RNA sequence: GGAUGUGAGGGCGAUCUGGCUGCGACAUCUGUCACCCCAUUGAUCACCAGGGUUGAUUUGUCUGAUCUGUCUCGCUAGGCGGGUGUCCCCUUCCUCCCUCACCGCUCCAUGUGUGUCCCUCCUGAAGCUGUGUGCUUGGUCGAAGAGGACAACCUUCCCUGAUAGAGGCGUACCGUUCAUCAAACCUCCAAACAAGCUCAAGAUCCAUUUGCAGGAGAACGUAGGGUAGUCAGGCUUCCAAGACUGCAAAUAAU
Numbered sequence: 001g002g003a004u005g006u007g008a009g010g011g012c013g014a015u016c017u018g019g020c021u022g023c024g025a026c027a028u029c030u031g032u033c034a035c036c037c038c039a040u041u042g043a044u045c046a047c048c049a050g051g052g053u054u055g056a057u058u059u060g061u062c063u064g065a066u067c068u069g070u071c072u073c074g075c076u077a078g079g080c081g082g083g084u085g086u087c088c089c090c091u092u093c094c095u096c097c098c099u100c101a102c103c104g105c106u107c108c109a110u111g112u113g114u115g116u117c118c119c120u121c122c123u124g125a126a127g128c129u130g131u132g133u134g135c136u137u138g139g140u141c142g143a144a145g146a147g148g149a150c151a152a153c154c155u156u157c158c159c160u161g162a163u164a165g166a167g168g169c170g171u172a173c174c175g176u177u178c179a180u181c182a183a184a185c186c187u188c189c190a191a192a193c194a195a196g197c198u199c200a201a202g203a204u205c206c207a208u209u210u211g212c213a214g215g216a217g218a219a220c221g222u223a224g225g226g227u228a229g230u231c232a233g234g235c236u237u238c239c240a241a242g243a244c245u246g247c248a249a250a251u252a253a254u
Stems, first nucleotide, its partner, number of pairs: 001108003005102007013093002018090002024087010035074001038069002042067004048060001117170001118168004122139004127135002140162003147158003173234002178229001181226001186217004193211004
Shown here is a 254-nucleotide sequence from Anhinga anhinga, a member of the family "7SK RNA". About the family: 7SK was discovered as an abundant small nuclear RNA in the mid-70s but a possible function has only recently been suggested. Two independent studies have found that 7SK RNA binds the CDK9/cyclin T complex (known as elongation factor P-TEFb). P-TEFb activates transcription by phosphorylating the C-terminal domain of RNA polymerase II. This process is negatively regulated by the 7SK RNP. The secondary structure of 7SK RNA shown here was proposed by Wasserman and Steitz on the basis of chemical modification and enzymatic cleavage experiments. This family contains a number of annotated pseudogenes and 7SK derived repeats. The threshold is artificially high to minimise the pseudogene count. It is annotated as a non-coding RNA gene. The base pairs follow the family's consensus structure, which is taken from published work. NCBI's taxonomy places the organism under Eukaryota, Deuterostomia, Dinosauria, Anhingidae, Anhinga.